[Rfam]
Rfam assigns this 79-nucleotide RNA from Gluconacetobacter diazotrophicus to the family "Fluoride riboswitch aptamer (crcB RNA motif)". Pairs were carried over by alignment from the consensus structure, which is taken from published work. Taxonomically the source falls in Gluconacetobacter diazotrophicus (Bacteria, Pseudomonadota, Alphaproteobacteria, Acetobacteraceae). On this family, see Baker et al., Science 2012: "Widespread genetic switches and toxicity resistance proteins for fluoride".
RNA sequence: GUCGGCGCAGGCAAUGGAUUUCUGCCUGACCGUCCGGGUCGAACCGCCUCUUUCGGGGGCUGAUGAUUCCUACCCACCG
Dot-bracket structure: .........((((..[[[.[[.))))...................((((.......))))....]].]]].........